[Rfam]
RNA sequence: CUAUCUGGGUCUGGGGCGAAGUCAAUGGCAGUCAUGUUCUUAAGCCCCACCAACUAUAAAUACAGACCUGAUAAUCAUACUCACAGAUGACGUCAAAAGGGUUUCUAUGACACAACAGCCGCAAGCUAAAUACCGU
Numbered sequence: 001c002u003a004u005c006u007g008g009g010u011c012u013g014g015g016g017c018g019a020a021g022u023c024a025a026u027g028g029c030a031g032u033c034a035u036g037u038u039c040u041u042a043a044g045c046c047c048c049a050c051c052a053a054c055u056a057u058a059a060a061u062a063c064a065g066a067c068c069u070g071a072u073a074a075u076c077a078u079a080c081u082c083a084c085a086g087a088u089g090a091c092g093u094c095a096a097a098a099g100g101g102u103u104u105c106u107a108u109g110a111c112a113c114a115a116c117a118g119c120c121g122c123a124a125g126c127u128a129a130a131u132a133c134c135g136u
Base pairs, nucleotide, nucleotide: 004066005065006064007063009061010060012058013057014047015046016045017044023036024035084118086116088114089113092111093110094109095108099106100105
Dot-bracket structure: ...((((.((.((((((.....((..........)).......)))).........)).)).)))).................(.(.((..((((...((....)).)))).)).).)..................
A member of the RNA family "PepN 5' UTR thermometer" from Yersinia bercovieri, 136 nucleotides long.
The literature on the family includes a 2016 paper in Proc Natl Acad Sci U S A by Righetti et al., "Temperature-responsive in vitro RNA structurome of Yersinia pseudotuberculosis".
Rfam classes the family as an RNA thermoregulator.
NCBI's taxonomy places the organism under Bacteria, Pseudomonadota, Gammaproteobacteria, Enterobacterales, Yersinia bercovieri.
Pairs were carried over by alignment from the consensus structure.
From the family's description: Position upstream of pepN gene responsible for amino acid processing.